[Rfam]
RNA sequence: GGGGACCUUCGGGGCCCUAAACACCAGCGGCCCUUCGGGGUUGCACGAAGCAAACGGAAGACAGAAA
Numbered sequence: 001g002g003g004g005a006c007c008u009u010c011g012g013g014g015c016c017c018u019a020a021a022c023a024c025c026a027g028c029g030g031c032c033c034u035u036c037g038g039g040g041u042u043g044c045a046c047g048a049a050g051c052a053a054a055c056g057g058a059a060g061a062c063a064g065a066a067a
Stems, first nucleotide, its partner, number of pairs: 001018004006014003027044007